[Rfam]
RNA sequence: GUUCUUCUAGCGACAGGUUUUCGCCGUGAUCUGCAGAGUUCCAUGAAGAAAACAUCUGAGAUCAUCGUGAAAGCCAGUUGCUUAAGAGGA
Numbered sequence: 001g002u003u004c005u006u007c008u009a010g011c012g013a014c015a016g017g018u019u020u021u022c023g024c025c026g027u028g029a030u031c032u033g034c035a036g037a038g039u040u041c042c043a044u045g046a047a048g049a050a051a052a053c054a055u056c057u058g059a060g061a062u063c064a065u066c067g068u069g070a071a072a073g074c075c076a077g078u079u080g081c082u083u084a085a086g087a088g089g090a
Stems, first nucleotide, its partner, number of pairs: 009082004016075009027064006035057003038053002
RNA: mir-81 microRNA precursor family